[Rfam]
RNA sequence: AAUGCCGGGGCUUUUUUUGAUGGGUGCGCCUGGCGGCGCACGUUUCUAAGUAUCACGGACAGAAAUCUGAUACAAGGCGUACAUGGUGGAUGAGCUGACUUAGGACAGCAAAGUCCAAAAGGCAACCGUAACCCAUGUAUGUAGAUCAGGCAAGUAGACGAGGAAAGACUGGCAG
Numbered sequence: 001a002a003u004g005c006c007g008g009g010g011c012u013u014u015u016u017u018u019g020a021u022g023g024g025u026g027c028g029c030c031u032g033g034c035g036g037c038g039c040a041c042g043u044u045u046c047u048a049a050g051u052a053u054c055a056c057g058g059a060c061a062g063a064a065a066u067c068u069g070a071u072a073c074a075a076g077g078c079g080u081a082c083a084u085g086g087u088g089g090a091u092g093a094g095c096u097g098a099c100u101u102a103g104g105a106c107a108g109c110a111a112a113g114u115c116c117a118a119a120a121g122g123c124a125a126c127c128g129u130a131a132c133c134c135a136u137g138u139a140u141g142u143a144g145a146u147c148a149g150g151c152a153a154g155u156a157g158a159c160g161a162g163g164a165a166a167g168a169c170u171g172g173c174a175g
Stems, first nucleotide, its partner, number of pairs: 001014002004011002028173003034167001039162001041160004046154002066150006077142003081138006088116004094109004
RNA: Group II catalytic intron D1-D4-3